[Rfam]
RNA: MIR2619 microRNA precursor family
RNA sequence: AAACAGCCCCCUAUGUUUUGAUUCUUUGGCAGUUUUGGACCCCUAAGGCAAAAAAAAAUAAUUUUUGACACGUGGCACCUCGCUUAGGGUGCCACGUCAGCGUUGACCGAGUCAACAAUUGACUAGGGGUCCAAAACUGCCAAAGAAUCAAACAUAGGGGGCUGUUU
Numbered sequence: 001a002a003a004c005a006g007c008c009c010c011c012u013a014u015g016u017u018u019u020g021a022u023u024c025u026u027u028g029g030c031a032g033u034u035u036u037g038g039a040c041c042c043c044u045a046a047g048g049c050a051a052a053a054a055a056a057a058a059u060a061a062u063u064u065u066u067g068a069c070a071c072g073u074g075g076c077a078c079c080u081c082g083c084u085u086a087g088g089g090u091g092c093c094a095c096g097u098c099a100g101c102g103u104u105g106a107c108c109g110a111g112u113c114a115a116c117a118a119u120u121g122a123c124u125a126g127g128g129g130u131c132c133a134a135a136a137c138u139g140c141c142a143a144a145g146a147a148u149c150a151a152a153c154a155u156a157g158g159g160g161g162c163u164g165u166u167u
Stems, first nucleotide, its partner, number of pairs: 001167002004164005012156005018151028070097002073094007